A member of the RNA family "Small nucleolar RNA SNORD56" from Nannospalax galili, 70 nucleotides long.

RNA sequence: CUACAAUGAUGGUAAGAUUUUUCGUCAACAGAGUUCACCUAGCGAGUGUUGAUGCUUUGGGUCUGAGUGA
Dot-bracket structure: .(((...((((...........))))........................................))).
Numbered sequence: 001c002u003a004c005a006a007u008g009a010u011g012g013u014a015a016g017a018u019u020u021u022u023c024g025u026c027a028a029c030a031g032a033g034u035u036c037a038c039c040u041a042g043c044g045a046g047u048g049u050u051g052a053u054g055c056u057u058u059g060g061g062u063c064u065g066a067g068u069g070a
Stems, first nucleotide, its partner, number of pairs: 002069003008026004

It scores 88 bits against the family's covariance model.
A reference for the family is Galardi et al. (2002), "Purified box C/D snoRNPs are able to reproduce site-specific 2'-O-methylation of target RNA in vitro", Mol Cell Biol.